[Rfam]
RNA sequence: CGCCGGAGCACGAUUGGGAAACUCAUCAAUUAUUUUUGAAAUACCGAGACAAGCUUCGUCGCCCAAUGGCGGGCCUCAUCCCUCUUCGGAGGAAGGCAUAAUUGCCCGGAGGAUUACAAAGGACGGCAAGCACUCAAAUCCUGUCAUUCGGAGUUUCAUCAUCUUCCUCCGGCGCGUUUCCUA
Numbered sequence: 001c002g003c004c005g006g007a008g009c010a011c012g013a014u015u016g017g018g019a020a021a022c023u024c025a026u027c028a029a030u031u032a033u034u035u036u037u038g039a040a041a042u043a044c045c046g047a048g049a050c051a052a053g054c055u056u057c058g059u060c061g062c063c064c065a066a067u068g069g070c071g072g073g074c075c076u077c078a079u080c081c082c083u084c085u086u087c088g089g090a091g092g093a094a095g096g097c098a099u100a101a102u103u104g105c106c107c108g109g110a111g112g113a114u115u116a117c118a119a120a121g122g123a124c125g126g127c128a129a130g131c132a133c134u135c136a137a138a139u140c141c142u143g144u145c146a147u148u149c150g151g152a153g154u155u156u157c158a159u160c161a162u163c164u165u166c167c168u169c170c171g172g173c174g175c176g177u178u179u180c181c182u183a
Stems, first nucleotide, its partner, number of pairs: 053131003058127004063122002067118002074112004079093003096105003
RNA: Bacteroidales-1 6S-Bacteroidales RNA suggested